[Rfam]
This 381-nucleotide part of an RNA from Metamycoplasma canadense belongs to the Rfam family "Bacterial large subunit ribosomal RNA". The family's consensus secondary structure is taken from published work. Lineage of the source: Bacteria > Bacillati > Mycoplasmatota > Mycoplasmoidales > Metamycoplasma.
RNA sequence: GAUUCAGAGUGAGAAUCUCUGACGCCUAUUGGGGAAGGUUUCCUGGGCAAGGUUCGUCCACCCAGGGUUAGUCGGGUCCUAAGACGAGGCCGAAAGGCGUAGCCGAUGGACAACAGGUUAAUAUUCCUGUACUUUCUAUAAAUGUGAUGGAGUGACGGGGGAGGAUAGUUUUACCACUUACUGGAUUGUGGGGUAAAUAGCAACUGGGUUAUGUAGGCAAAUCCGCAUGAUUUAACCGGGAGCUAUGACGCAUAGCGAAAAGGCAACUGAGUAGCGAAUUAAAUGAUUUCAUACUUCUUAAAAAAGCUUCUAACAUUAAGUUUAUAUGAAACCCGUACCGAGAACGGACACACGUCCCCAAGAUGAGUAUUCUAAGGCGAG
Number, nucleotide and partner (000 for none) at each position: 001g000002a000003u000004u022005c021006a020007g019008a018009g017010u000011g000012a000013g000014a000015a000016u000017c009018u008019c007020u006021g005022a004023c379024g378025c377026c376027u000028a000029u000030u000031g359032g358033g357034g356035a000036a000037g339038g338039u000040u000041u000042c066043c065044u064045g063046g062047g061048c000049a000050a000051g059052g058053u000054u000055c000056g000057u000058c052059c051060a000061c047062c046063c045064a044065g043066g042067g000068u000069u000070a000071g000072u000073c335074g334075g333076g332077u000078c109079c108080u000081a000082a000083g104084a000085c102086g000087a100088g000089g098090c097091c096092g000093a000094a000095a000096g091097g090098c089099g000100u087101a000102g085103c000104c083105g000106a000107u000108g079109g078110a000111c000112a000113a130114c129115a128116g127117g126118u000119u000120a000121a000122u000123a000124u000125u000126c117127c116128u115129g114130u113131a000132c000133u331134u330135u329136c328137u326138a325139u324140a323141a322142a321143u320144g314145u313146g000147a000148u000149g310150g309151a308152g307153u306154g000155a000156c000157g297158g296159g295160g294161g000162a000163g290164g289165a288166u000167a000168g284169u283170u282171u281172u000173a000174c191175c190176a189177c188178u000179u000180a000181c000182u000183g000184g000185a000186u000187u000188g177189u176190g175191g174192g000193g251194u250195a000196a000197a246198u245199a244200g243201c000202a000203a000204c239205u238206g237207g000208g231209u230210u229211a228212u227213g226214u225215a000216g224217g223218c000219a000220a000221a000222u000223c217224c216225g214226c213227a212228u211229g210230a209231u208232u000233u000234a000235a000236c000237c206238g205239g204240g000241a000242g000243c200244u199245a198246u197247g000248a000249c000250g194251c193252a000253u277254a000255g275256c274257g000258a272259a000260a000261a000262g000263g000264c000265a000266a000267c000268u000269g000270a000271g000272u258273a000274g256275c255276g000277a253278a000279u000280u000281a171282a170283a169284u168285g000286a000287u000288u165289u164290c163291a000292u000293a000294c160295u159296u158297c157298u000299u000300a000301a000302a000303a000304a000305a000306g153307c152308u151309u150310c149311u000312a000313a145314c144315a000316u000317u000318a000319a000320g143321u142322u141323u140324a139325u138326a137327u000328g136329a135330a134331a133332c076333c075334c074335g073336u000337a000338c038339c037340g000341a000342g000343a000344a000345c354346g353347g000348a000349c000350a000351c000352a000353c346354g345355u000356c034357c033358c032359c031360a000361a373362g372363a371364u000365g000366a000367g000368u000369a000370u000371u363372c362373u361374a000375a000376g026377g025378c024379g023380a000381g000